[Rfam]
RNA sequence: UCAUGUUAGUGAUGGCUUUCAAAGUUCACACAGACGAGAAUCUCCCUGAAAGACAAUGAAGAUCAGUUUGAAACGGAAACAGUA
Number, nucleotide and partner (000 for none) at each position: 001u084002c000003a000004u081005g080006u079007u078008a000009g000010u000011g000012a000013u000014g000015g000016c000017u000018u000019u000020c000021a000022a000023a000024g000025u000026u000027c000028a000029c000030a000031c000032a000033g000034a000035c000036g000037a000038g000039a000040a000041u000042c000043u000044c000045c000046c000047u000048g000049a000050a000051a000052g000053a000054c000055a000056a000057u000058g000059a000060a000061g000062a000063u000064c000065a000066g000067u000068u000069u000070g000071a000072a000073a000074c000075g000076g000077a000078a007079a006080c005081a004082g000083u000084a001